[Rfam]
RNA: c-di-AMP riboswitch aptamer (ydaO/yuaA leader)
RNA sequence: CUCCCUAUAGCGCCGAGCUCCAUCCAGUAGGCGGGGGACACCAACCGUGGAUGGAGGCGGGGGACCCACCAGUCCGCCGAGAUCGGACCGGGGCCGCAUGCGGCCCUUGGGGUGAAGCCGACGUCAUCUCCCUGAUCAAUACGACGCCGGCCGGGUGCCUCUCUAACGCAAUCCAGCCCGAACCCGACAGCUGACUUCGCAGGCGCGUACCGAGAGGAAAU
Numbered sequence: 001c002u003c004c005c006u007a008u009a010g011c012g013c014c015g016a017g018c019u020c021c022a023u024c025c026a027g028u029a030g031g032c033g034g035g036g037g038a039c040a041c042c043a044a045c046c047g048u049g050g051a052u053g054g055a056g057g058c059g060g061g062g063g064a065c066c067c068a069c070c071a072g073u074c075c076g077c078c079g080a081g082a083u084c085g086g087a088c089c090g091g092g093g094c095c096g097c098a099u100g101c102g103g104c105c106c107u108u109g110g111g112g113u114g115a116a117g118c119c120g121a122c123g124u125c126a127u128c129u130c131c132c133u134g135a136u137c138a139a140u141a142c143g144a145c146g147c148c149g150g151c152c153g154g155g156u157g158c159c160u161c162u163c164u165a166a167c168g169c170a171a172u173c174c175a176g177c178c179c180g181a182a183c184c185c186g187a188c189a190g191c192u193g194a195c196u197u198c199g200c201a202g203g204c205g206c207g208u209a210c211c212g213a214g215a216g217g218a219a220a221u
Stems, first nucleotide, its partner, number of pairs: 011205004018056009057200006067109002110185003118150003153179004